The record is a 209-nucleotide sequence from Pseudomonas guineae, which matches "PhrS" in Rfam. Its family is annotated with quorum sensing in the Gene Ontology. The literature on the family includes a 2011 paper in Mol Microbiol by Sonnleitner et al., "The small RNA PhrS stimulates synthesis of the Pseudomonas aeruginosa quinolone signal". The base pairs follow the family's consensus structure, which was predicted with CMfinder.
RNA sequence: AUUCCCACACAGGCUUCAAGCAGGAGGCAACCAUGUUUAUCGAUGUCGUAGUUCUCGCCGGUAUCGGCACCGUCGGUCUGAUGGUCGCCUUCUUCUUCGGUGUUGGUUAUUUCAUCUGGCAGGAUUCGCACAAGCGCAAGCAGAGCUGAAUCCUCUGGAGCAAGGGGCACGCAAGGCAAUUUGGGCGACUUAGGUCGCCCUUUUUUAUG
Numbered sequence: 001a002u003u004c005c006c007a008c009a010c011a012g013g014c015u016u017c018a019a020g021c022a023g024g025a026g027g028c029a030a031c032c033a034u035g036u037u038u039a040u041c042g043a044u045g046u047c048g049u050a051g052u053u054c055u056c057g058c059c060g061g062u063a064u065c066g067g068c069a070c071c072g073u074c075g076g077u078c079u080g081a082u083g084g085u086c087g088c089c090u091u092c093u094u095c096u097u098c099g100g101u102g103u104u105g106g107u108u109a110u111u112u113c114a115u116c117u118g119g120c121a122g123g124a125u126u127c128g129c130a131c132a133a134g135c136g137c138a139a140g141c142a143g144a145g146c147u148g149a150a151u152c153c154u155c156u157g158g159a160g161c162a163a164g165g166g167g168c169a170c171g172c173a174a175g176g177c178a179a180u181u182u183g184g185g186c187g188a189c190u191u192a193g194g195u196c197g198c199c200c201u202u203u204u205u206u207a208u209g
Stems, first nucleotide, its partner, number of pairs: 005099001007097001048058002075086004167177002170175001183200007